c-di-GMP-I riboswitch aptamer: an 83-nucleotide RNA from Aliivibrio fischeri. Taxonomically the source falls in Aliivibrio fischeri (Bacteria, Pseudomonadota, Vibrionaceae, Aliivibrio).
[Rfam]
RNA sequence: UCACGAACAUGGCAAACUACAUGAAAAUGUAGGACGCAAAGCUUCCGGCCUAAGUAUUUAUAUAAGGUAGCGGGGUUGCCGAC
Numbered sequence: 001u002c003a004c005g006a007a008c009a010u011g012g013c014a015a016a017c018u019a020c021a022u023g024a025a026a027a028u029g030u031a032g033g034a035c036g037c038a039a040a041g042c043u044u045c046c047g048g049c050c051u052a053a054g055u056a057u058u059u060a061u062a063u064a065a066g067g068u069a070g071c072g073g074g075g076u077u078g079c080c081g082a083c
Stems, first nucleotide, its partner, number of pairs: 012037002017032006040077004045073003048068003055062002